Shown here is a 100-nucleotide RNA sequence from Halobiforma nitratireducens, a member of the family "L4-Archaeoglobi ribosomal protein leades". The family's RNA type in Rfam is cis-regulatory leader. Rfam's curators put it in the seed alignment.
RNA sequence: CUGAAGGGCGCGUCCGGGUCAAUUGCGGCAUGCAACACCCGAUCUCCCUCAAUACACCUCCCGACAUGGAGGUCUCGGAGGGGGAGCGCGUGACCGUCAG
Numbered sequence: 001c002u003g004a005a006g007g008g009c010g011c012g013u014c015c016g017g018g019u020c021a022a023u024u025g026c027g028g029c030a031u032g033c034a035a036c037a038c039c040c041g042a043u044c045u046c047c048c049u050c051a052a053u054a055c056a057c058c059u060c061c062c063g064a065c066a067u068g069g070a071g072g073u074c075u076c077g078g079a080g081g082g083g084g085a086g087c088g089c090g091u092g093a094c095c096g097u098c099a100g
Base pairs, nucleotide, nucleotide: 001100002099003098004097008091009090010089011088012087013086015041016040017039018038023035024034025033026032027031043085044084045083046082047081048080049079050078